[Rfam]
RNA sequence: AAGAUGGAUUCGGGAGAGACUGCCCAUAAUGUAUGGAAGAUAAAGAAUACACGGGAUACAGCGUAUCAGUGUAUAAUCAGCAUACAGAAGGCAGCGCCGAAGGGGAAGCGGAAAACUCUCAGGCAAAAGGACCGGAUACCGGAC
Numbered sequence: 001a002a003g004a005u006g007g008a009u010u011c012g013g014g015a016g017a018g019a020c021u022g023c024c025c026a027u028a029a030u031g032u033a034u035g036g037a038a039g040a041u042a043a044a045g046a047a048u049a050c051a052c053g054g055g056a057u058a059c060a061g062c063g064u065a066u067c068a069g070u071g072u073a074u075a076a077u078c079a080g081c082a083u084a085c086a087g088a089a090g091g092c093a094g095c096g097c098c099g100a101a102g103g104g105g106a107a108g109c110g111g112a113a114a115a116c117u118c119u120c121a122g123g124c125a126a127a128a129g130g131a132c133c134g135g136a137u138a139c140c141g142g143a144c
Stems, first nucleotide, its partner, number of pairs: 006139001008137006020094004096124003099120002103118003
RNA: Glycine riboswitch aptamer